[Rfam]
RNA sequence: CUUGGAGGACUAAGAAGGCUGAGUCUGAUGAAGCAAGACUUUGCUGAUACAAUCCUCCUAGAGAAAAGGGUUGGAGAGAGCAGCCUUAUUAGAGAAUAUCAUCGGGCUGACUGUACUGCCCAACAUUC
Numbered sequence: 001c002u003u004g005g006a007g008g009a010c011u012a013a014g015a016a017g018g019c020u021g022a023g024u025c026u027g028a029u030g031a032a033g034c035a036a037g038a039c040u041u042u043g044c045u046g047a048u049a050c051a052a053u054c055c056u057c058c059u060a061g062a063g064a065a066a067a068g069g070g071u072u073g074g075a076g077a078g079a080g081c082a083g084c085c086u087u088a089u090u091a092g093a094g095a096a097u098a099u100c101a102u103c104g105g106g107c108u109g110a111c112u113g114u115a116c117u118g119c120c121c122a123a124c125a126u127u128c
Stems, first nucleotide, its partner, number of pairs: 002061002004058006017045003021041006068121004079112002081109006090101001092099001
The family of this 128-nucleotide RNA from Orycteropus afer is "Small Cajal body specific RNA 4". The source organism's lineage runs through Eukaryota, Vertebrata, Teleostomi, Theria and Orycteropus afer. It is annotated as a small Cajal body RNA. Its family is annotated with nucleolus, RNA processing and Cajal body in the Gene Ontology. scaRNAs are a specific class of small nuclear RNAs which localise to the Cajal bodies and guide the modification of RNA polymerase II transcribed spliceosomal RNAs U1, U2, U4, U5 and U12. ACA26 belongs to the H/ACA box class of guide RNAs as it has the predicted hairpin-hinge-hairpin-tail structure, conserved H/ACA-box motifs and is found associated with GAR1. Clan: SCARNA4 clan. The literature on the family includes a 2002 paper in EMBO J by Darzacq et al., "Cajal body-specific small nuclear RNAs: a novel class of 2'-O-methylation and pseudouridylation guide RNAs".